[Rfam]
RNA sequence: UCGGUUUCGGUUCACCCCUCCGGCCCUGGUGGGGACCCGACGACC
Number, nucleotide and partner (000 for none) at each position: 001u000002c000003g045004g044005u043006u000007u040008c039009g038010g037011u000012u000013c000014a000015c034016c033017c032018c031019u000020c029021c028022g027023g000024c000025c000026c000027u022028g021029g020030u000031g018032g017033g016034g015035a000036c000037c010038c009039g008040a007041c000042g000043a005044c004045c003
RNA: L31-Actinobacteria ribosomal protein leader